[Rfam]
RNA sequence: GACAAUUAGCUCUUUUAGUGUAUGUCCAGUAGGUUUUCUCAUGGAGAAAGCCAAA
Numbered sequence: 001g002a003c004a005a006u007u008a009g010c011u012c013u014u015u016u017a018g019u020g021u022a023u024g025u026c027c028a029g030u031a032g033g034u035u036u037u038c039u040c041a042u043g044g045a046g047a048a049a050g051c052c053a054a055a
Stems, first nucleotide, its partner, number of pairs: 032052008
RNA: U7 small nuclear RNA
Organism: Salmo trutta